[Rfam]
RNA sequence: CAUUGUUCCCAGGGGCGCCUCGCUAGGAGGCUGAGAUUCCGCCGGCCCGGACUUCAGAUCUCGGCAACGCGGUGACCCUAUGAACCUGAUCCGGAUCAUGCCGGCGUAGGGAUGUGGGACAGGCGGCCU
Number, nucleotide and partner (000 for none) at each position: 001c000002a000003u000004u000005g000006u117007u116008c000009c114010c000011a079012g078013g077014g076015g000016c000017g031018c030019c029020u028021c027022g000023c000024u000025a000026g000027g021028a020029g019030g018031c017032u000033g000034a000035g000036a000037u000038u000039c072040c071041g070042c069043c000044g000045g000046c000047c000048c000049g000050g000051a000052c000053u000054u000055c000056a000057g000058a000059u000060c000061u000062c000063g000064g000065c000066a000067a000068c000069g042070c041071g040072g039073u000074g000075a000076c014077c013078c012079u011080a000081u000082g000083a000084a000085c110086c109087u108088g107089a000090u000091c104092c103093g102094g101095a000096u000097c000098a000099u000100g000101c094102c093103g092104g091105c000106g000107u088108a087109g086110g085111g000112a000113u000114g009115u000116g007117g006118g000119a000120c000121a000122g000123g000124c000125g000126g000127c000128c000129u000
The record is a 129-nucleotide RNA sequence from Azorhizobium oxalatiphilum, which matches "TPP riboswitch aptamer (THI element)" in Rfam. The organism belongs to Azorhizobium, within Bacteria. It scores 66 bits against the family's covariance model.